[Rfam]
RNA sequence: GUUCAAGAGUCGUAACCGUAGGUACCUGGCCGGUUACGCGACAACCCGAAUCCAUCGAUUCCCGGGUGUCCCAGGGGAAGAACGGGCUUCAUGAAAUCUCAUGGAGCAAGAUUCGAUG
Numbered sequence: 001g002u003u004c005a006a007g008a009g010u011c012g013u014a015a016c017c018g019u020a021g022g023u024a025c026c027u028g029g030c031c032g033g034u035u036a037c038g039c040g041a042c043a044a045c046c047c048g049a050a051u052c053c054a055u056c057g058a059u060u061c062c063c064g065g066g067u068g069u070c071c072c073a074g075g076g077g078a079a080g081a082a083c084g085g086g087c088u089u090c091a092u093g094a095a096a097u098c099u100c101a102u103g104g105a106g107c108a109a110g111a112u113u114c115g116a117u118g
Base pairs, nucleotide, nucleotide: 001083002082003081004080009039011038012037013036014035015034016033021031022030040070041069042068045066046065047064086107087106088105089104090103091102092101093100094099

About this RNA: Shown here is a 118-nucleotide RNA from Helcobacillus massiliensis, a member of the family "SAM (S-adenosyl methionine) riboswitch aptamer". The organism belongs to Helcobacillus, within Bacteria. The base pairs follow the family's consensus structure, which is taken from published work. On this family, see Weinberg et al., RNA 2008: "The aptamer core of SAM-IV riboswitches mimics the ligand-binding site of SAM-I riboswitches". A search with the family's covariance model found it, with a score of 71 bits.